[Rfam]
Shown here is a 75-nucleotide RNA sequence from Lactococcus cremoris, a member of the family "Fluoride riboswitch aptamer (crcB RNA motif)". The source organism's lineage runs through Bacteria, Bacillati, Bacilli, Lactobacillales and Lactococcus cremoris subsp. cremoris. The sequence is in the family's curated seed alignment.
RNA sequence: AAUAAUGAUGGGUAUGGUGCACACCCGAAACCGCUUUAAGAAUAAAAUCUUAAAACUAAUGGCGCCUACAAACAA
Numbered sequence: 001a002a003u004a005a006u007g008a009u010g011g012g013u014a015u016g017g018u019g020c021a022c023a024c025c026c027g028a029a030a031c032c033g034c035u036u037u038a039a040g041a042a043u044a045a046a047a048u049c050u051u052a053a054a055a056c057u058a059a060u061g062g063c064g065c066c067u068a069c070a071a072a073c074a075a
Stems, first nucleotide, its partner, number of pairs: 010026004016066005033056001035054007